[Rfam]
RNA: DUF3800-I RNA
RNA sequence: UGUAAGUGCAGGUAUUCAUACACUGCACACGAGUGGUCUACGAUCCUUUGGUUUAAGCGUAAUGUAAGUACGUCGCCCACUUGGGAACCACCUUCGGGUGGUUUUUCUUUUGUUU
Numbered sequence: 001u002g003u004a005a006g007u008g009c010a011g012g013u014a015u016u017c018a019u020a021c022a023c024u025g026c027a028c029a030c031g032a033g034u035g036g037u038c039u040a041c042g043a044u045c046c047u048u049u050g051g052u053u054u055a056a057g058c059g060u061a062a063u064g065u066a067a068g069u070a071c072g073u074c075g076c077c078c079a080c081u082u083g084g085g086a087a088c089c090a091c092c093u094u095c096g097g098g099u100g101g102u103u104u105u106u107c108u109u110u111u112g113u114u115u
Stems, first nucleotide, its partner, number of pairs: 007027005012021003030083006041075002043053001045051001057073005084105009